[Rfam]
RNA sequence: GUGUGUUCAUGAUGAUCUGUCUUUAAACUCAACAGAGGAAGCAGAUCUGAUACCUGACAC
Numbered sequence: 001g002u003g004u005g006u007u008c009a010u011g012a013u014g015a016u017c018u019g020u021c022u023u024u025a026a027a028c029u030c031a032a033c034a035g036a037g038g039a040a041g042c043a044g045a046u047c048u049g050a051u052a053c054c055u056g057a058c059a060c
Stems, first nucleotide, its partner, number of pairs: 001060004014047007022039002028037003
RNA: Selenocysteine insertion sequence 1
Organism: Mola mola